[Rfam]
RNA: TD-1 RNA
Organism: Treponema parvum
RNA sequence: UUUUAAUUUCGAGUUUUCUAUUGAAAACUCGUUUAUUGAACUGUGCGCAAAAAGCGCACGAAUGCAACAGUCUUCAAAAUUGACAUUUUGUUCGACUGUUGCAUUUUAAG
Numbered sequence: 001u002u003u004u005a006a007u008u009u010c011g012a013g014u015u016u017u018c019u020a021u022u023g024a025a026a027a028c029u030c031g032u033u034u035a036u037u038g039a040a041c042u043g044u045g046c047g048c049a050a051a052a053a054g055c056g057c058a059c060g061a062a063u064g065c066a067a068c069a070g071u072c073u074u075c076a077a078a079a080u081u082g083a084c085a086u087u088u089u090g091u092u093c094g095a096c097u098g099u100u101g102c103a104u105u106u107u108a109a110g
Stems, first nucleotide, its partner, number of pairs: 011030008043059006062104011075090006